[Rfam]
RNA sequence: UGUUAAAGAUUUCGUCUAUUUCUUUUGUUAAAAACUGGUGUAGCUGAUAGAAUACCUAAAUAGUUACACAUAAUAUAUCAUGUGUACCUUGUGCUAACGUACAUGGAUCAAUUUUUAAUAAUAAAAAUAAAUAAAAUUUUUAAAA
Numbered sequence: 001u002g003u004u005a006a007a008g009a010u011u012u013c014g015u016c017u018a019u020u021u022c023u024u025u026u027g028u029u030a031a032a033a034a035c036u037g038g039u040g041u042a043g044c045u046g047a048u049a050g051a052a053u054a055c056c057u058a059a060a061u062a063g064u065u066a067c068a069c070a071u072a073a074u075a076u077a078u079c080a081u082g083u084g085u086a087c088c089u090u091g092u093g094c095u096a097a098c099g100u101a102c103a104u105g106g107a108u109c110a111a112u113u114u115u116u117a118a119u120a121a122u123a124a125a126a127a128u129a130a131a132u133a134a135a136a137u138u139u140u141u142a143a144a145a
Stems, first nucleotide, its partner, number of pairs: 003143010014132002018128004023123001025121002028118006

Shown here is a 145-nucleotide RNA sequence from Gossypium stocksii, a member of the family "MIR7502 microRNA precursor family". It scores 87 bits against the family's covariance model.